This 75-nucleotide sequence from Bombyx mori belongs to the Rfam family "mir-9/mir-79 microRNA precursor family". Gene Ontology terms of the family: RISC complex and miRNA-mediated post-transcriptional gene silencing. The family's consensus secondary structure was predicted with RNAalifold.
RNA sequence: CGCUGCGACGCUUUGGCGAUUUAGCUCCGUGACAUCAUUCCGUUCAUAAAGCUAGAUUACCAAAGCAUCGCGUCG
Numbered sequence: 001c002g003c004u005g006c007g008a009c010g011c012u013u014u015g016g017c018g019a020u021u022u023a024g025c026u027c028c029g030u031g032a033c034a035u036c037a038u039u040c041c042g043u044u045c046a047u048a049a050a051g052c053u054a055g056a057u058u059a060c061c062a063a064a065g066c067a068u069c070g071c072g073u074c075g
Stems, first nucleotide, its partner, number of pairs: 001075002004072002007069002010066007018058009029047004